A member of the RNA family "Antisense RNA which regulates isiA expression" from Musa balbisiana, 183 nucleotides long. A reference for the family is Duhring et al. (2006), "An internal antisense RNA regulates expression of the photosynthesis gene isiA", Proc Natl Acad Sci U S A. The base pairs follow the family's consensus structure, which was predicted with PFOLD. Taxonomically the source falls in Musa (Eukaryota, Streptophytina, Euphyllophyta, Musaceae). It scores 124 bits against the family's covariance model.
RNA sequence: AAUAACCAAAAUAUACACUGGGCUACGUCUUGUAUCUUUUUCUUACAUCUCCCCCCCCAGGGGCCCAGGUAUCAUAUAUGCCCCCAAAAUAAACGCCUUGGCACUAGAAGAACAGCACCUAAGAGACCUACCAACAUUAAGUGAUACCCAAAAAUGUUAGUCAUUUUAUUUCUAUCGUUUCCA
Numbered sequence: 001a002a003u004a005a006c007c008a009a010a011a012u013a014u015a016c017a018c019u020g021g022g023c024u025a026c027g028u029c030u031u032g033u034a035u036c037u038u039u040u041u042c043u044u045a046c047a048u049c050u051c052c053c054c055c056c057c058c059a060g061g062g063g064c065c066c067a068g069g070u071a072u073c074a075u076a077u078a079u080g081c082c083c084c085c086a087a088a089a090u091a092a093a094c095g096c097c098u099u100g101g102c103a104c105u106a107g108a109a110g111a112a113c114a115g116c117a118c119c120u121a122a123g124a125g126a127c128c129u130a131c132c133a134a135c136a137u138u139a140a141g142u143g144a145u146a147c148c149c150a151a152a153a154a155u156g157u158u159a160g161u162c163a164u165u166u167u168a169u170u171u172c173u174a175u176c177g178u179u180u181c182c183a
Base pairs, nucleotide, nucleotide: 140179141178142177143176144175145174150171151170152169